[Rfam]
RNA sequence: GGUGAUCCACACCAGUGUCUCGGACAGCGGUUCGAUUCCGCUCAGCUCCAUUUUUGUCACACCAGUUCUUGGGGCUGCAAUGGUUUCGACGGGAUAUAAGGAGGGUGACUGAAGCCUGCUCGGUAAGAGCGAACCCAUAAACGCUAACAACAUCGUUAGUUUCUCCCGUCGGACAGCCCCUGUUGCUGCCUGA
Numbered sequence: 001g002g003u004g005a006u007c008c009a010c011a012c013c014a015g016u017g018u019c020u021c022g023g024a025c026a027g028c029g030g031u032u033c034g035a036u037u038c039c040g041c042u043c044a045g046c047u048c049c050a051u052u053u054u055u056g057u058c059a060c061a062c063c064a065g066u067u068c069u070u071g072g073g074g075c076u077g078c079a080a081u082g083g084u085u086u087c088g089a090c091g092g093g094a095u096a097u098a099a100g101g102a103g104g105g106u107g108a109c110u111g112a113a114g115c116c117u118g119c120u121c122g123g124u125a126a127g128a129g130c131g132a133a134c135c136c137a138u139a140a141a142c143g144c145u146a147a148c149a150a151c152a153u154c155g156u157u158a159g160u161u162u163c164u165c166c167c168g169u170c171g172g173a174c175a176g177c178c179c180c181u182g183u184u185g186c187u188g189c190c191u192g193a
Stems, first nucleotide, its partner, number of pairs: 001110003005106001016096003020092003026042005043077007
The family of this 193-nucleotide RNA sequence from Prochlorococcus sp. AG-409-M05 is "permuted transfer-messenger RNA". The sequence is in the family's curated seed alignment. The literature on the family includes a 1996 paper in RNA by Williams and Bartel, "Phylogenetic analysis of tmRNA secondary structure". About the family: Bacterial tmRNA, also known as 10Sa RNA or SsrA, is named for its dual tRNA and mRNA-like properties. Its role is to liberate the mRNA from a stalled ribosome. To accomplish this part of the tmRNA is used as a reading frame that ends in a translation stop signal. Its family is annotated with RNA catabolic process in the Gene Ontology.